RNA: Bacterial large subunit ribosomal RNA, nucleotides 9 to 532
Organism: Candidatus Kentrum sp. G
RNA sequence: AAAUAAGCGCAUAUGGUGGAUGCCUUGGCGGCAACAGGCGAUGAAGGGCGUAGUAGCUUGCGAUAAGCCUCGGGGAGUUGGCAAACAAACAUAGAUCCGAGGAUUCCCGAAUGGGGUAACCCGGCCUGCGUAAGCAGGUCAUCGUCACUUGAAUACAUAGAGUGGCGAAGCGAACCCGGUGAAGUGAAACAUCUAAGUAACCGGAGGAAAAGAAAUCAACCGAGAUUCCGUUAGUAGCGGCGAGCGAACGCGGACCAGCCAGCACUCUUUAGCAUGUAGUUUAGUAGAACGGCUCUGGAAAGGUCGGCCAUAGUGGGUGAUAGCCCCGUAUAUGAAGGGCUGCAUGUGGAACUAGGUGUGCGAUAAGUAGGGCGGGACACGUGUUAUCCUGUCUGAAGAUGGGGGGACCACCCUCCAAGGCUAAAUACUCGUUGCCGACCGAUAGUGAACCAGUACCGUGAGGGAAAGGCGAAAAGAACCCCUGUAGGGGAGUGAAAUAGAACCUGAAACCGUAUGCGUACAAG
Numbered sequence: 001a002a003a004u005a006a007g008c009g010c011a012u013a014u015g016g017u018g019g020a021u022g023c024c025u026u027g028g029c030g031g032c033a034a035c036a037g038g039c040g041a042u043g044a045a046g047g048g049c050g051u052a053g054u055a056g057c058u059u060g061c062g063a064u065a066a067g068c069c070u071c072g073g074g075g076a077g078u079u080g081g082c083a084a085a086c087a088a089a090c091a092u093a094g095a096u097c098c099g100a101g102g103a104u105u106c107c108c109g110a111a112u113g114g115g116g117u118a119a120c121c122c123g124g125c126c127u128g129c130g131u132a133a134g135c136a137g138g139u140c141a142u143c144g145u146c147a148c149u150u151g152a153a154u155a156c157a158u159a160g161a162g163u164g165g166c167g168a169a170g171c172g173a174a175c176c177c178g179g180u181g182a183a184g185u186g187a188a189a190c191a192u193c194u195a196a197g198u199a200a201c202c203g204g205a206g207g208a209a210a211a212g213a214a215a216u217c218a219a220c221c222g223a224g225a226u227u228c229c230g231u232u233a234g235u236a237g238c239g240g241c242g243a244g245c246g247a248a249c250g251c252g253g254a255c256c257a258g259c260c261a262g263c264a265c266u267c268u269u270u271a272g273c274a275u276g277u278a279g280u281u282u283a284g285u286a287g288a289a290c291g292g293c294u295c296u297g298g299a300a301a302g303g304u305c306g307g308c309c310a311u312a313g314u315g316g317g318u319g320a321u322a323g324c325c326c327c328g329u330a331u332a333u334g335a336a337g338g339g340c341u342g343c344a345u346g347u348g349g350a351a352c353u354a355g356g357u358g359u360g361c362g363a364u365a366a367g368u369a370g371g372g373c374g375g376g377a378c379a380c381g382u383g384u385u386a387u388c389c390u391g392u393c394u395g396a397a398g399a400u401g402g403g404g405g406g407a408c409c410a411c412c413c414u415c416c417a418a419g420g421c422u423a424a425a426u427a428c429u430c431g432u433u434g435c436c437g438a439c440c441g442a443u444a445g446u447g448a449a450c451c452a453g454u455a456c457c458g459u460g461a462g463g464g465a466a467a468g469g470c471g472a473a474a475a476g477a478a479c480c481c482c483u484g485u486a487g488g489g490g491a492g493u494g495a496a497a498u499a500g501a502a503c504c505u506g507a508a509a510c511c512g513u514a515u516g517c518g519u520a521c522a523a524g
Base pairs, nucleotide, nucleotide: 007519008518009517010516011515012514013513014512015511016510022504023469024468027440028439029437030436031435032434033433034432035431036429037428038171039170046108047107048106049062050061051060068102069101070100071099072098073097074096077090078089079088113122114121115120123140124139125138126137127136128135129134142168143167144166145165146164147163148162149161150160175206176204177203178202179201180200186193187192216223217222226425227254228253229252230251231250237245238244257422258421259420260419265358267356268355269354270349272347273346274345275344276343277342278341279340280339281338282337284333285332286331290306291305292304293303295302309313315327316326317325370394371393372392373391374390375389376388377387401416402415403414404413405412456463457462479490480489481488482487